Shown here is a 145-nucleotide sequence from Gossypium harknessii, a member of the family "MIR7502 microRNA precursor family".
Nucleotides: 145
Base pairs, nucleotide, nucleotide: 002144003143004142005141006140007139008138009137010136011135012134014132015131016130018128019127020126021125023123024122026120028118029117030116031115032114033113034112035111
Number, partner (000 for none) and nucleotide at each position: 001000u002144g003143u004142u005141a006140a007139a008138a009137a010136u011135u012134u013000a014132a015131u016130u017000c018128a019127u020126u021125u022000u023123u024122a025000c026120u027000g028118u029117u030116a031115a032114a033113a034112a035111u036000u037000g038000g039000u040000c041000u042000c043000u044000g045000u046000a047000g048000g049000u050000c051000a052000g053000c054000a055000u056000g057000a058000c059000a060000u061000a062000c063000a064000c065000a066000u067000g068000g069000c070000a071000c072000c073000u074000c075000a076000u077000g078000u079000g080000u081000c082000a083000u084000u085000g086000u087000u088000u089000g090000a091000u092000u093000a094000u095000u096000c097000c098000a099000u100000c101000a102000g103000g104000c105000a106000c107000a108000c109000c110000a111035a112034u113033u114032u115031u116030u117029a118028a119000c120026a121000a122024u123023a124000c125021a126020a127019g128018u129000a130016a131015a132014u133000g134012a135011a136010a137009u138008u139007u140006u141005u142004a143003a144002c145000a